[Rfam]
RNA sequence: UCUUUACAGAUUAGCUGCCUAAAUAUAGGCAAUGGCUGGUGACAAAUGUCACCGGCCU
Number, nucleotide and partner (000 for none) at each position: 001u000002c000003u000004u000005u000006a000007c000008a000009g000010a000011u000012u000013a000014g000015c000016u031017g030018c029019c028020u000021a000022a000023a000024u000025a000026u000027a000028g019029g018030c017031a016032a000033u000034g057035g056036c055037u054038g053039g052040u051041g050042a049043c048044a000045a000046a000047u000048g043049u042050c041051a040052c039053c038054g037055g036056c035057c034058u000
The family of this 58-nucleotide RNA from Thalassotalea sp. HSM 43 is "Pseudomonas sRNA P26". Rfam describes the family as follows. This small RNA (sRNA) was computationally identified in the genome of the opportunistic pathogen Pseudomonas aeruginosa and its expression verified by northern blot analysis. The match comes from Rfam's covariance-model search (41 bits). The family's RNA type in Rfam is non-coding RNA gene. The family's consensus secondary structure was predicted with RNAalifold.